[Rfam]
RNA sequence: UUUUGUUAGUGAUGAUGUUUAAACAGAUGGGUAUAUCUCUGAAAGAGAAUGAAGCCUAAUUUGAAACUGAAACAGUA
Number, nucleotide and partner (000 for none) at each position: 001u077002u000003u075004u074005g073006u072007u071008a000009g000010u000011g000012a000013u000014g000015a000016u000017g000018u000019u000020u000021a000022a000023a000024c000025a000026g000027a000028u000029g000030g000031g000032u000033a000034u000035a000036u000037c000038u000039c000040u000041g000042a000043a000044a000045g000046a000047g000048a000049a000050u000051g000052a000053a000054g000055c000056c000057u000058a000059a000060u000061u000062u000063g000064a000065a000066a000067c000068u000069g000070a000071a007072a006073c005074a004075g003076u000077a001
Background
The record is a 77-nucleotide RNA from Heterocephalus glaber, which matches "Small nucleolar RNA SNORD79" in Rfam. Gene Ontology terms of the family: nucleolus and RNA processing. On this family, see Galardi et al., Mol Cell Biol 2002: "Purified box C/D snoRNPs are able to reproduce site-specific 2'-O-methylation of target RNA in vitro". The match comes from Rfam's covariance-model search (69 bits). The family's consensus secondary structure was predicted with PFOLD. snoRNA U79 or Z22 is found in intron 7 of the gas5 gene in humans and is also present in mice.